[Rfam]
Record summary:
This 252-nucleotide RNA sequence from Paenisporosarcina antarctica belongs to the Rfam family "BsrG". The family has 6 seed sequences and 614 matches in Rfam 15.1.
RNA sequence: GAAUAAUAGAAUAGGUUACUUAAGGGUGGUUGAAUCACUCCCGUCCGAAAGGGGUGUGGUGCCAUGUCAGUAUUCGAAGCAUUGAUGUUUGCGGUAACUUUUACGACAUUGAUUGUAUUGAUCCUUUCAUUUAACCAUAAAAAAUAACCCAUCCUUGAGUUCGAGCUCAGAUGGGUUAUUACUCUCAUUUAGACAAUCCCCUUGAAGGGAGCCUGCUAUUAUGUUGAUCGUUUGGUGUUUUGACCACCAAAC
Numbered sequence: 001g002a003a004u005a006a007u008a009g010a011a012u013a014g015g016u017u018a019c020u021u022a023a024g025g026g027u028g029g030u031u032g033a034a035u036c037a038c039u040c041c042c043g044u045c046c047g048a049a050a051g052g053g054g055u056g057u058g059g060u061g062c063c064a065u066g067u068c069a070g071u072a073u074u075c076g077a078a079g080c081a082u083u084g085a086u087g088u089u090u091g092c093g094g095u096a097a098c099u100u101u102u103a104c105g106a107c108a109u110u111g112a113u114u115g116u117a118u119u120g121a122u123c124c125u126u127u128c129a130u131u132u133a134a135c136c137a138u139a140a141a142a143a144a145u146a147a148c149c150c151a152u153c154c155u156u157g158a159g160u161u162c163g164a165g166c167u168c169a170g171a172u173g174g175g176u177u178a179u180u181a182c183u184c185u186c187a188u189u190u191a192g193a194c195a196a197u198c199c200c201c202u203u204g205a206a207g208g209g210a211g212c213c214u215g216c217u218a219u220u221a222u223g224u225u226g227a228u229c230g231u232u233u234g235g236u237g238u239u240u241u242g243a244c245c246a247c248c249a250a251a252c
Base pairs, nucleotide, nucleotide: 001224003222004221005220007218008217009216011214016196017195019159020158021157022156023155024154025153026152028149029148030147031146035059036058037057039054040053041052042051066128069125070124072122080093106119169185170184171183197210198209199208200207230252231251232250233249234248235247236246237245239243
Rfam describes the family as follows. bsrE, bsrG and bsrH pair through intermolecular interactions with antisense sRNAs. They form type I toxin/antitoxin system that includes an mRNA encoding for a short, toxic peptide (bsrE, bsrG and bsrH) and an antitoxin that is comprised of an antisense RNA. bsrG encodes a 39-amino-acid toxin, and the 180 nucleotide antisense sRNA called SR4 acts as the antitoxin (they overlap by 123 nucleotides). SR4 interaction with the 3'UTR of bsrG RNA promotes bsrG degradation and inhibits its translation. On this family, see Saito et al., Gene 2008: "Novel small RNA-encoding genes in the intergenic regions of Bacillus subtilis". Pairs were carried over by alignment from the consensus structure, which was predicted with WAR. The source organism's lineage runs through Bacteria, Bacillota, Bacilli, Caryophanaceae and Paenisporosarcina. A search with the family's covariance model found it, with a score of 96 bits.